[Rfam]
ybhL leader: a 96-nucleotide sequence from Paenochrobactrum gallinarii. For this family Rfam cites "Evidence for a second class of S-adenosylmethionine riboswitches and other regulatory RNA motifs in alpha-proteobacteria" (Corbino et al., Genome Biol, 2005). This family is a putative regulatory RNA structure that is found upstream of an uncharacterized membrane protein in alpha-proteobacteria. NCBI's taxonomy places the organism under Bacteria, Pseudomonadota, Hyphomicrobiales, Brucellaceae, Paenochrobactrum. The pairing is the family consensus, mapped onto this sequence. Rfam classes the family as a cis-regulatory leader.

RNA sequence: CAGGCAUGCUGGGGUCCCGCCAGCGGCGCCUGGAGUGUUUUGUAGUCGCGGCUUGUUUCGCGGUUACGGAUCGCACCGACACCGGACGGGACAACG
Numbered sequence: 001c002a003g004g005c006a007u008g009c010u011g012g013g014g015u016c017c018c019g020c021c022a023g024c025g026g027c028g029c030c031u032g033g034a035g036u037g038u039u040u041u042g043u044a045g046u047c048g049c050g051g052c053u054u055g056u057u058u059c060g061c062g063g064u065u066a067c068g069g070a071u072c073g074c075a076c077c078g079a080c081a082c083c084g085g086a087c088g089g090g091a092c093a094a095c096g
Base pairs, nucleotide, nucleotide: 014092015091016090017089018088019087024084025083026082031078032077033076